Plastid-psbA-1 3UTR RNA: a 100-nucleotide RNA from Cajanus cajan.
[Rfam]
RNA sequence: UUGAGGCUCCAUCUAUAAAUGGAUAAAAUUGUGGUCCUAAUAUAUAUAUGAGUUUUUGAACGUAAAGGAGCAAUAUCAACCCUCUUGAUAUUGCUCCUUU
Numbered sequence: 001u002u003g004a005g006g007c008u009c010c011a012u013c014u015a016u017a018a019a020u021g022g023a024u025a026a027a028a029u030u031g032u033g034g035u036c037c038u039a040a041u042a043u044a045u046a047u048a049u050g051a052g053u054u055u056u057u058g059a060a061c062g063u064a065a066a067g068g069a070g071c072a073a074u075a076u077c078a079a080c081c082c083u084c085u086u087g088a089u090a091u092u093g094c095u096c097c098u099u100u
Stems, first nucleotide, its partner, number of pairs: 008023005064100013078086002
Rfam describes the family as follows. Plastid psbA-1 is a non-coding RNA (ncRNA) present in plastids. It was identified in inverted repeat sequences in the 3 prime untranslate region (3UTR) of photosystem II quinone-binding protein (psbA).